RNA sequence: UGAGAUGAAAUUAGUGUUUGGAUAUGUGAUUUCUUCUCUGAUUUCAUCUCAUG
Dot-bracket structure: ((((((((((((((.(.(((......)))......).))))))))))))))..

Background: The family of this 53-nucleotide RNA sequence from Anisodus acutangulus is "MIR1886 microRNA precursor family". It scores 62 bits against the family's covariance model. The family's consensus secondary structure was predicted with RNAalifold.